This 395-nucleotide part of an RNA from Dimargaris verticillata belongs to the Rfam family "Eukaryotic large subunit ribosomal RNA". The match comes from Rfam's covariance-model search (2613 bits).
RNA sequence: GAGUCCCGCCAGUAAUUCAGUUUAGUACGAGAGGAACAACUGAUUCAAGCCUCUGGGAUUGACCCUUGUCCGACCGGACAGUGGGGUGAUGCUACGCUUGCCAGAUAAUGGCUGGAGGCCUCUAAGCCCGAAUCUGAGCUGCAGGGAGUCAUGGCGCGCGGUGCACGGGGAAGGAUAUGCGCAGUAGCUAUACUGAGCAGGAACCGGCACAUGCAGCGCGGGAAGGGCGCGGGUGAACCCUGCGCCUGGACCGCGCGCAGCACACAAGCUACUAAGCAGCAGCGCGCGCCGCUAGCGCCAUUGAAGACGACGAUGACGACAACCAGGCACUGUGAUAGGCAGAGCAUCUUUGUAGGUGCGAUCCUUUGAGGUCCAUCCUGAGUUGGGGGCGUAUG
Numbered sequence: 001g002a003g004u005c006c007c008g009c010c011a012g013u014a015a016u017u018c019a020g021u022u023u024a025g026u027a028c029g030a031g032a033g034g035a036a037c038a039a040c041u042g043a044u045u046c047a048a049g050c051c052u053c054u055g056g057g058a059u060u061g062a063c064c065c066u067u068g069u070c071c072g073a074c075c076g077g078a079c080a081g082u083g084g085g086g087u088g089a090u091g092c093u094a095c096g097c098u099u100g101c102c103a104g105a106u107a108a109u110g111g112c113u114g115g116a117g118g119c120c121u122c123u124a125a126g127c128c129c130g131a132a133u134c135u136g137a138g139c140u141g142c143a144g145g146g147a148g149u150c151a152u153g154g155c156g157c158g159c160g161g162u163g164c165a166c167g168g169g170g171a172a173g174g175a176u177a178u179g180c181g182c183a184g185u186a187g188c189u190a191u192a193c194u195g196a197g198c199a200g201g202a203a204c205c206g207g208c209a210c211a212u213g214c215a216g217c218g219c220g221g222g223a224a225g226g227g228c229g230c231g232g233g234u235g236a237a238c239c240c241u242g243c244g245c246c247u248g249g250a251c252c253g254c255g256c257g258c259a260g261c262a263c264a265c266a267a268g269c270u271a272c273u274a275a276g277c278a279g280c281a282g283c284g285c286g287c288g289c290c291g292c293u294a295g296c297g298c299c300a301u302u303g304a305a306g307a308c309g310a311c312g313a314u315g316a317c318g319a320c321a322a323c324c325a326g327g328c329a330c331u332g333u334g335a336u337a338g339g340c341a342g343a344g345c346a347u348c349u350u351u352g353u354a355g356g357u358g359c360g361a362u363c364c365u366u367u368g369a370g371g372u373c374c375a376u377c378c379u380g381a382g383u384u385g386g387g388g389g390c391g392u393a394u395g
Base pairs, nucleotide, nucleotide: 001150002149004147005146006145007144010141011140012139013138015045017043018042019041020040021039022038046100047099048098049097050096054094055093056092062087063086064085065084066081067080068079069078070077071076102136103135104134110128111127112126113125153290154289155288156287157286158285159284295392296391297390298389299315300314301313302312303311320385321384322383323382325379326378327377329372330371337365338364339363341362344359345358346357347356348355
Dot-bracket structure: ((.((((..((((.(.((((((...............)))))).)(((((...(((.....((((((((((....))))))..))))....))).))))).(((.....((((...........)))).....))).))))..)))).))..(((((((............................................................................................................................)))))))....(((((((((.......)))))....((((.(((.((......(((.(..(((((......)))))..)))).....))....)))..))))...))))...